Shown here is a 75-nucleotide RNA from Alligator mississippiensis, a member of the family "Mammalian CPEB3 ribozyme". About the family: The mammalian CPEB3 ribozyme is a self cleaving RNA located in the second intron of the CPEB3 gene which belongs to a family of genes regulating messenger RNA polyadenylation. Pairs were carried over by alignment from the consensus structure, which is taken from published work.

RNA sequence: UCAAGAGUGCAAGGCCAUAGCAGAAGUGCUCAUAACACAGCCAUGUCAGAUUCCAAUGAAUCUGCAAAUUCUGCU
Numbered sequence: 001u002c003a004a005g006a007g008u009g010c011a012a013g014g015c016c017a018u019a020g021c022a023g024a025a026g027u028g029c030u031c032a033u034a035a036c037a038c039a040g041c042c043a044u045g046u047c048a049g050a051u052u053c054c055a056a057u058g059a060a061u062c063u064g065c066a067a068a069u070u071c072u073g074c075u
Stems, first nucleotide, its partner, number of pairs: 013042003019075007026038003047064007